A member of the RNA family "Plastid-psbA-1 3UTR RNA" from Nasturtium officinale, 123 nucleotides long. Pairs were carried over by alignment from the consensus structure, which was predicted with LocARNA. It is annotated as a cis-regulatory element. NCBI's taxonomy places the organism under Eukaryota, Viridiplantae, Tracheophyta, eudicotyledons, Nasturtium. From the family's description: Plastid psbA-1 is a non-coding RNA (ncRNA) present in plastids. It was identified in inverted repeat sequences in the 3 prime untranslate region (3UTR) of photosystem II quinone-binding protein (psbA). The family is grouped with related families in Rfam's "Plastid-psbA 3UTR RNA clan".
[Rfam]
RNA sequence: GUUGAGGCUCCAUCUACAAAUGGAUAAUUCUUUAGUGUUAGUCUAGACCUAGUUUAGAAAUAGUAAAAAACGAGCAAUAUAAGCCUUCUUUUUCAUUUUAAGAAGGCUUAUAUUGCUCAUUUU
Dot-bracket structure: ........(((((......)))))...........................................(((.(((((((((........(..((..........)))...))))))))).))).
Numbered sequence: 001g002u003u004g005a006g007g008c009u010c011c012a013u014c015u016a017c018a019a020a021u022g023g024a025u026a027a028u029u030c031u032u033u034a035g036u037g038u039u040a041g042u043c044u045a046g047a048c049c050u051a052g053u054u055u056a057g058a059a060a061u062a063g064u065a066a067a068a069a070a071c072g073a074g075c076a077a078u079a080u081a082a083g084c085c086u087u088c089u090u091u092u093u094c095a096u097u098u099u100a101a102g103a104a105g106g107c108u109u110a111u112a113u114u115g116c117u118c119a120u121u122u123u
Stems, first nucleotide, its partner, number of pairs: 009024005068122003072118009089106001092105002
For this family Rfam cites "Retrograde signaling in plants: A critical review focusing on the GUN pathway and beyond" (Richter et al., Plant Commun, 2023).